[Rfam]
RNA sequence: CAUGGACACACGCUUAGUUUCCGGCAUACCUUUACCGGAAAGCGGGGGAACCAGUUUUAUUAGGGGCGAGUCACUUGAAUCAAGAGUGUAGGGUACCAUCUUAACCCGAGUCCGUCAGCUAACCUCGUCAGCAGUGGAUGGGUCUUUU
Dot-bracket structure: ...........(((...(((((((..........)))))))((((((....(..........)(((.....((((.........))))..((((.........))))...))).........)))))).)))................
Numbered sequence: 001c002a003u004g005g006a007c008a009c010a011c012g013c014u015u016a017g018u019u020u021c022c023g024g025c026a027u028a029c030c031u032u033u034a035c036c037g038g039a040a041a042g043c044g045g046g047g048g049a050a051c052c053a054g055u056u057u058u059a060u061u062a063g064g065g066g067c068g069a070g071u072c073a074c075u076u077g078a079a080u081c082a083a084g085a086g087u088g089u090a091g092g093g094u095a096c097c098a099u100c101u102u103a104a105c106c107c108g109a110g111u112c113c114g115u116c117a118g119c120u121a122a123c124c125u126c127g128u129c130a131g132c133a134g135u136g137g138a139u140g141g142g143u144c145u146u147u148u
Stems, first nucleotide, its partner, number of pairs: 012132003018041007042128006052063001064113003072088004091107004

The family of this 148-nucleotide RNA sequence from Paenibacillus solani is "c-di-AMP riboswitch aptamer (ydaO/yuaA leader)". It scores 75 bits against the family's covariance model. The organism belongs to Paenibacillus, within Bacteria.